[Rfam]
RNA sequence: CACUCCUGUUUCUGCCUCAAAUCCGUUUUGUUUCUAUAGGAUUAUGGGUUCUGGUGAUGGAGAAGAUCAAGCCAUGAAAUGGGCUUAUACCAACUUUUGAUACAUCCGGUAUUUGUCUUGUUUCAUGGAUCGUGUGGAUGAUUUUGUAUCCGUUGUGUGGAGCAAUAUCAAUAUAAAGUUUGAUAUUGAGCCUGAUCGGUCCCACUACAUUA
Numbered sequence: 001c002a003c004u005c006c007u008g009u010u011u012c013u014g015c016c017u018c019a020a021a022u023c024c025g026u027u028u029u030g031u032u033u034c035u036a037u038a039g040g041a042u043u044a045u046g047g048g049u050u051c052u053g054g055u056g057a058u059g060g061a062g063a064a065g066a067u068c069a070a071g072c073c074a075u076g077a078a079a080u081g082g083g084c085u086u087a088u089a090c091c092a093a094c095u096u097u098u099g100a101u102a103c104a105u106c107c108g109g110u111a112u113u114u115g116u117c118u119u120g121u122u123u124c125a126u127g128g129a130u131c132g133u134g135u136g137g138a139u140g141a142u143u144u145u146g147u148a149u150c151c152g153u154u155g156u157g158u159g160g161a162g163c164a165a166u167a168u169c170a171a172u173a174u175a176a177a178g179u180u181u182g183a184u185a186u187u188g189a190g191c192c193u194g195a196u197c198g199g200u201c202c203c204a205c206u207a208c209a210u211u212a
Stems, first nucleotide, its partner, number of pairs: 003062004016048004020043005072128012084115001087112005134205004140201004155191002158189001161186001167184005